[Rfam]
RNA sequence: GGCCUCCCUCUGCAGGGCAAUUGAUCUGGGGGCCCUGUGAUCGAUUGCCCCACAGAGGGAGGCC
Numbered sequence: 001g002g003c004c005u006c007c008c009u010c011u012g013c014a015g016g017g018c019a020a021u022u023g024a025u026c027u028g029g030g031g032g033c034c035c036u037g038u039g040a041u042c043g044a045u046u047g048c049c050c051c052a053c054a055g056a057g058g059g060a061g062g063c064c
Stems, first nucleotide, its partner, number of pairs: 001064012015050012029036002
The family of this 64-nucleotide RNA sequence from Myotis brandtii is "mir-9242 microRNA precursor family". Rfam 15.1 lists 940 matches to the family in 18 species. Its family is annotated with miRNA-mediated post-transcriptional gene silencing and RISC complex in the Gene Ontology. The match comes from Rfam's covariance-model search (64 bits). Pairs were carried over by alignment from the consensus structure, which was predicted with RNAalifold.